[Rfam]
Shown here is a 77-nucleotide RNA sequence from Campylorhamphus procurvoides, a member of the family "Small nucleolar RNA SNORD19". The organism belongs to Campylorhamphus, within Eukaryota.

RNA sequence: GAAAAAUGAUGAUAUUCUUUCUGUAUCCUAUUGUUAACAGUGAAGACUUCAGAUCCAACUCUGAUUUCACUCUGGUU
Numbered sequence: 001g002a003a004a005a006a007u008g009a010u011g012a013u014a015u016u017c018u019u020u021c022u023g024u025a026u027c028c029u030a031u032u033g034u035u036a037a038c039a040g041u042g043a044a045g046a047c048u049u050c051a052g053a054u055c056c057a058a059c060u061c062u063g064a065u066u067u068c069a070c071u072c073u074g075g076u077u
Base pairs, nucleotide, nucleotide: 001068002067003066004065
Overview: It is annotated as a C/D-box small nucleolar RNA. The literature on the family includes a 2001 paper in EMBO J by Huttenhofer et al., "RNomics: an experimental approach that identifies 201 candidates for novel, small, non-messenger RNAs in mouse".